[Rfam]
About this RNA:
Shown here is a 587-nucleotide part of an RNA from Bermanella marisrubri, a member of the family "Bacterial large subunit ribosomal RNA". The base pairs follow the family's consensus structure, which is taken from published work. A search with the family's covariance model found it, with a score of 2877 bits. NCBI's taxonomy places the organism under Bacteria, Pseudomonadota, Gammaproteobacteria, Oceanospirillales, Bermanella.

RNA sequence: CCCGCGGCUAGACGGAAAGACCCCGUGAACCUUUACUAUAGCUUCACAGUGGACUUUGACAUUACUUGUGUAGGAUAGCUGGGAGGCUUUGAAGCGUGGACGCCAGUCUGCGUGGAGCCAAUCUUGAAAUACCAGCCUGGUAAUGUUGAGGUUCUAACUCAGGUCCCUCAUCGGGAUCGAGGACACUGUGUGGUGGGUAGUUUGACUGGGGCGGUCUCCUCCCAAAGAGUAACGGAGGAGCACGAAGGUUGGCUAAUCAUGGUCGGAAAUCAUGAGGUUAGUGUAAUGGCACAAGCCAGCUUAACUGCGAGACUGACACGUCGAGCAGGUACGAAAGUAGGUCAUAGUGAUCCGGUGGUUCUGUAUGGAAGGGCCAUCGCUCAACGGAUAAAAGGUACUCCGGGGAUAACAGGCUGAUACCGCCCAAGAGUUCACAUCGACGGCGGUGUUUGGCACCUCGAUGUCGGCUCAUCACAUCCUGGGGCUGAAGCCGGUCCCAAGGGUAUGGCUGUUCGCCAUUUAAAGUGGUACGCGAGCUGGGUUUAGAACGUCGUGAGACAGUUCGGUCCCUAUCUGCCGUGGGCGUU
Numbered sequence: 001c002c003c004g005c006g007g008c009u010a011g012a013c014g015g016a017a018a019g020a021c022c023c024c025g026u027g028a029a030c031c032u033u034u035a036c037u038a039u040a041g042c043u044u045c046a047c048a049g050u051g052g053a054c055u056u057u058g059a060c061a062u063u064a065c066u067u068g069u070g071u072a073g074g075a076u077a078g079c080u081g082g083g084a085g086g087c088u089u090u091g092a093a094g095c096g097u098g099g100a101c102g103c104c105a106g107u108c109u110g111c112g113u114g115g116a117g118c119c120a121a122u123c124u125u126g127a128a129a130u131a132c133c134a135g136c137c138u139g140g141u142a143a144u145g146u147u148g149a150g151g152u153u154c155u156a157a158c159u160c161a162g163g164u165c166c167c168u169c170a171u172c173g174g175g176a177u178c179g180a181g182g183a184c185a186c187u188g189u190g191u192g193g194u195g196g197g198u199a200g201u202u203u204g205a206c207u208g209g210g211g212c213g214g215u216c217u218c219c220u221c222c223c224a225a226a227g228a229g230u231a232a233c234g235g236a237g238g239a240g241c242a243c244g245a246a247g248g249u250u251g252g253c254u255a256a257u258c259a260u261g262g263u264c265g266g267a268a269a270u271c272a273u274g275a276g277g278u279u280a281g282u283g284u285a286a287u288g289g290c291a292c293a294a295g296c297c298a299g300c301u302u303a304a305c306u307g308c309g310a311g312a313c314u315g316a317c318a319c320g321u322c323g324a325g326c327a328g329g330u331a332c333g334a335a336a337g338u339a340g341g342u343c344a345u346a347g348u349g350a351u352c353c354g355g356u357g358g359u360u361c362u363g364u365a366u367g368g369a370a371g372g373g374c375c376a377u378c379g380c381u382c383a384a385c386g387g388a389u390a391a392a393a394g395g396u397a398c399u400c401c402g403g404g405g406a407u408a409a410c411a412g413g414c415u416g417a418u419a420c421c422g423c424c425c426a427a428g429a430g431u432u433c434a435c436a437u438c439g440a441c442g443g444c445g446g447u448g449u450u451u452g453g454c455a456c457c458u459c460g461a462u463g464u465c466g467g468c469u470c471a472u473c474a475c476a477u478c479c480u481g482g483g484g485c486u487g488a489a490g491c492c493g494g495u496c497c498c499a500a501g502g503g504u505a506u507g508g509c510u511g512u513u514c515g516c517c518a519u520u521u522a523a524a525g526u527g528g529u530a531c532g533c534g535a536g537c538u539g540g541g542u543u544u545a546g547a548a549c550g551u552c553g554u555g556a557g558a559c560a561g562u563u564c565g566g567u568c569c570c571u572a573u574c575u576g577c578c579g580u581g582g583g584c585g586u587u
Base pairs, nucleotide, nucleotide: 001583002582003581004580005579006578007577008576010575011574012573014570015569022404023403024402025401027400028399029396030395031394032393033392035201036200037199038198042193043192045190046189047188048187051154052153053152054151055150056149057148058147059146060145061144062143063142064141065140066139068137078136079135080134081133082132085119086118087117094113095112096111097110098109099108100107101106158181159180160179162178163177164176165175166174167173204216205215206214207213217239218238219237220236221235222234240385242342243341248300249299250298251297252296253295254280255279257275258274259273260272261271262270281290282289305328306327307326308325311322312321313320330339331338332337353379354378355377356376357375358374359373361372362371413454414453415452417451418448419447420446421445422444423443424442428438429437465540466538467537468536469535470532471529472528473527474526475525478503479502481498482497483496484495485494486493505519506518507517508516509515546564547563548562549561550559551558552557